RNA sequence: UUCCUAAUAUAAGUAUAUCCCAUGCAUUAUUUAGGACAUACUUAUACUAAAA
Dot-bracket structure: .....(.(((((.(((.(((.(........)..))).))).))))).)....
Numbered sequence: 001u002u003c004c005u006a007a008u009a010u011a012a013g014u015a016u017a018u019c020c021c022a023u024g025c026a027u028u029a030u031u032u033a034g035g036a037c038a039u040a041c042u043u044a045u046a047c048u049a050a051a052a
Stems, first nucleotide, its partner, number of pairs: 006048001008046005014040003018036003022031001
The family of this 52-nucleotide RNA sequence from Myotis lucifugus is "mir-1302 microRNA precursor family".
The source organism's lineage runs through Eukaryota, Craniata, Eutheria, Laurasiatheria and Myotis.
For this family Rfam cites "Application of massively parallel sequencing to microRNA profiling and discovery in human embryonic stem cells" (Morin et al., Genome Res, 2008).